A member of the RNA family "Small nucleolar RNA Z107/R87" from Ziziphus jujuba, 112 nucleotides long. The base pairs follow the family's consensus structure, which was predicted with RNAfold. By type it is a C/D-box small nucleolar RNA. Its family is annotated with nucleolus and RNA processing in the Gene Ontology. Lineage of the source: Eukaryota > Streptophytina > Magnoliopsida > Rhamnaceae > Ziziphus jujuba.
[Rfam]
RNA sequence: GAUCGCAGUGAUGACUCAAUCAAAUUCAAACUCAACAGACCAGAAUGCAGGGUUAUAGUCUUGUCUUGGGAGAUAGCUCUGUCUGUCAAUCAAAACGCUAUCUUGAGUGAUU
Numbered sequence: 001g002a003u004c005g006c007a008g009u010g011a012u013g014a015c016u017c018a019a020u021c022a023a024a025u026u027c028a029a030a031c032u033c034a035a036c037a038g039a040c041c042a043g044a045a046u047g048c049a050g051g052g053u054u055a056u057a058g059u060c061u062u063g064u065c066u067u068g069g070g071a072g073a074u075a076g077c078u079c080u081g082u083c084u085g086u087c088a089a090u091c092a093a094a095a096c097g098c099u100a101u102c103u104u105g106a107g108u109g110a111u112u
Stems, first nucleotide, its partner, number of pairs: 001112006